[Rfam]
RNA: Guanidine-II riboswitch aptamer (mini-ykkC)
Organism: Paraburkholderia acidiphila
RNA sequence: CUGUAAGGACGGCCUUGCAGCUUUUUUUGUCAUCGGGGACGGCCCCA
Numbered sequence: 001c002u003g004u005a006a007g008g009a010c011g012g013c014c015u016u017g018c019a020g021c022u023u024u025u026u027u028u029g030u031c032a033u034c035g036g037g038g039a040c041g042g043c044c045c046c047a
Base pairs, nucleotide, nucleotide: 001020002019003018004017005016006015007014008013035046036045037044038043